msiK RNA: a 56-nucleotide RNA sequence.
RNA sequence: ACCACUCACCUUUACUCGGAUCGUCCGGCACGUUCCUGCCGGUGAAGGAGCACACA
Numbered sequence: 001a002c003c004a005c006u007c008a009c010c011u012u013u014a015c016u017c018g019g020a021u022c023g024u025c026c027g028g029c030a031c032g033u034u035c036c037u038g039c040c041g042g043u044g045a046a047g048g049a050g051c052a053c054a055c056a
Stems, first nucleotide, its partner, number of pairs: 009048006025042006
Pairs were carried over by alignment from the consensus structure, which is taken from published work.